[Rfam]
RNA sequence: ACCUGCCCGGUGCGCCCCAGACGCACCCGGGUUGCAGACACACAUCGCGCCAUGGAAGAAAUGUGCGCUCAAGGGCGUU
Numbered sequence: 001a002c003c004u005g006c007c008c009g010g011u012g013c014g015c016c017c018c019a020g021a022c023g024c025a026c027c028c029g030g031g032u033u034g035c036a037g038a039c040a041c042a043c044a045u046c047g048c049g050c051c052a053u054g055g056a057a058g059a060a061a062u063g064u065g066c067g068c069u070c071a072a073g074g075g076c077g078u079u
Stems, first nucleotide, its partner, number of pairs: 005032006012024003016020001047068004051063003
Dot-bracket structure: ....((((((.(((.(...).)))..))))))..............(((((((.......))).))))...........
Shown here is a 79-nucleotide RNA sequence from Streptomyces caatingaensis, a member of the family "nrdJ RNA". A search with the family's covariance model found it, with a score of 54 bits. Rfam classes the family as a small RNA. NCBI's taxonomy places the organism under Bacteria, Actinomycetota, Actinomycetes, Kitasatosporales, Streptomyces.